[Rfam]
RNA sequence: GCCUCUAAUGAUGACGAUUGAAAAAUAACUUUCGUUCUUCCGAGAUGCUCCAUGCGGAAAAAUUUGGAGACCUGAACUGAAGAGGC
Numbered sequence: 001g002c003c004u005c006u007a008a009u010g011a012u013g014a015c016g017a018u019u020g021a022a023a024a025a026u027a028a029c030u031u032u033c034g035u036u037c038u039u040c041c042g043a044g045a046u047g048c049u050c051c052a053u054g055c056g057g058a059a060a061a062a063u064u065u066g067g068a069g070a071c072c073u074g075a076a077c078u079g080a081a082g083a084g085g086c
Stems, first nucleotide, its partner, number of pairs: 003084004
Description: The family of this 86-nucleotide RNA sequence from Prunus persica is "Small nucleolar RNA Z159/U59". The organism belongs to Prunus, within Eukaryota. The match comes from Rfam's covariance-model search (61 bits). The family is grouped with related families in Rfam's "SNORD59 clan". On this family, see Chen et al., Nucleic Acids Res 2003: "The high diversity of snoRNAs in plants: identification and comparative study of 120 snoRNA genes from Oryza sativa".